Shown here is a 387-nucleotide RNA from Pedobacter psychrophilus, a member of the family "Bacterial RNase P class A".
The source organism's lineage runs through Bacteria, Pseudomonadati, Sphingobacteriia, Sphingobacteriales and Pedobacter.
By type it is a ribozyme.
Rfam links the family to the GO terms dimeric ribonuclease P complex, ribonuclease P activity and tRNA processing.
[Rfam]
RNA sequence: AACGCAAAUUGCUCUAUCGCUGUUCGCAUUAAUGCGGAGAGAGGAAAGUCCGGGCAACACAGGGUACCUUGCUUCCUAACGGGAAGGCGCUAUUUAUUGGCGACAGAAAGUGCUACAGAAAAUAAACUACCGAUAAGCAAUUAUCGGAAAAGGUGAAAAUGUGAGGUAAGAGCUCACGACUUUGUAUGGCGACAUGCAUCGUGGUAAACCUCAGGGGUUGAAAGACCAAAUAAGUCUCGAUUCUGGAGCGUCCCGUUCCAAUUGUUUAUUCAAUAUCGAGAUGGGUAGGUCGUUAGAUCAUAAUAGCAAUGUUAUGGCAAGAUAAAUGAUAGAGACAUACUGAUUAAUUCAGGAUGACAGAACCCGGCUUACAAAUUUGCAUUUUUU
Numbered sequence: 001a002a003c004g005c006a007a008a009u010u011g012c013u014c015u016a017u018c019g020c021u022g023u024u025c026g027c028a029u030u031a032a033u034g035c036g037g038a039g040a041g042a043g044g045a046a047a048g049u050c051c052g053g054g055c056a057a058c059a060c061a062g063g064g065u066a067c068c069u070u071g072c073u074u075c076c077u078a079a080c081g082g083g084a085a086g087g088c089g090c091u092a093u094u095u096a097u098u099g100g101c102g103a104c105a106g107a108a109a110g111u112g113c114u115a116c117a118g119a120a121a122a123u124a125a126a127c128u129a130c131c132g133a134u135a136a137g138c139a140a141u142u143a144u145c146g147g148a149a150a151a152g153g154u155g156a157a158a159a160u161g162u163g164a165g166g167u168a169a170g171a172g173c174u175c176a177c178g179a180c181u182u183u184g185u186a187u188g189g190c191g192a193c194a195u196g197c198a199u200c201g202u203g204g205u206a207a208a209c210c211u212c213a214g215g216g217g218u219u220g221a222a223a224g225a226c227c228a229a230a231u232a233a234g235u236c237u238c239g240a241u242u243c244u245g246g247a248g249c250g251u252c253c254c255g256u257u258c259c260a261a262u263u264g265u266u267u268a269u270u271c272a273a274u275a276u277c278g279a280g281a282u283g284g285g286u287a288g289g290u291c292g293u294u295a296g297a298u299c300a301u302a303a304u305a306g307c308a309a310u311g312u313u314a315u316g317g318c319a320a321g322a323u324a325a326a327u328g329a330u331a332g333a334g335a336c337a338u339a340c341u342g343a344u345u346a347a348u349u350c351a352g353g354a355u356g357a358c359a360g361a362a363c364c365c366g367g368c369u370u371a372c373a374a375a376u377u378u379g380c381a382u383u384u385u386u387u
Stems, first nucleotide, its partner, number of pairs: 001383002004380007011372001012334007020041002023038006046370003050367005055220004062271004067216005072086005087104001088102004105211002110209002112205003127152002130147007160178006183198006224291004234282006263275004298317008
Dot-bracket structure: ((.(((((((((((((((.((.((((((....)))))).))....[[[.[[[[[((((...[[[[.((((((((((.....)))))(((((.......)))).)((...(((((............((.(((((((....)))))))...)).......((((((.......))))))....((((((....))))))....)))..)))))))))))))...((((......((((((.......................((((.]]]])))).)))))).....))))......((((((((....))))))))..........)))))))............................]]]]]]]].).))))))).))....